[Rfam]
This 187-nucleotide RNA from Luteimonas aestuarii belongs to the Rfam family "FMN riboswitch aptamer (RFN element)". Taxonomically the source falls in Luteimonas (Bacteria, Gammaproteobacteria, Lysobacterales, Lysobacteraceae).
RNA sequence: AAACGUCUUCAGGGCGGGGUGCGAUUCCCCACCGGCGGUAGGCGGACCGUCCACGGGGAUGGGUCCGCGAGCCCGCGAGCGCUUCCGUUGCCGCCUGCGGCCCGGAAGGUCAGCAGACCCGGUCGAAUGCCGGGGCCGACGGUCGGAAGCGAAGGCUUCCGGAAAGUCCGGAUGGAAGAAGACGCGC
Numbered sequence: 001a002a003a004c005g006u007c008u009u010c011a012g013g014g015c016g017g018g019g020u021g022c023g024a025u026u027c028c029c030c031a032c033c034g035g036c037g038g039u040a041g042g043c044g045g046a047c048c049g050u051c052c053a054c055g056g057g058g059a060u061g062g063g064u065c066c067g068c069g070a071g072c073c074c075g076c077g078a079g080c081g082c083u084u085c086c087g088u089u090g091c092c093g094c095c096u097g098c099g100g101c102c103c104g105g106a107a108g109g110u111c112a113g114c115a116g117a118c119c120c121g122g123u124c125g126a127a128u129g130c131c132g133g134g135g136c137c138g139a140c141g142g143u144c145g146g147a148a149g150c151g152a153a154g155g156c157u158u159c160c161g162g163a164a165a166g167u168c169c170g171g172a173u174g175g176a177a178g179a180a181g182a183c184g185c186g187c
Base pairs, nucleotide, nucleotide: 004184005183006182007181008180009179010178017029018028019027033138034137035076036075037074038073071136072135079114080113118134119133120132121131122130140170141169142168
The base pairs follow the family's consensus structure, which is taken from published work. A reference for the family is Vitreschak et al. (2002), "Regulation of riboflavin biosynthesis and transport genes in bacteria by transcriptional and translational attenuation", Nucleic Acids Res. A search with the family's covariance model found it, with a score of 77 bits.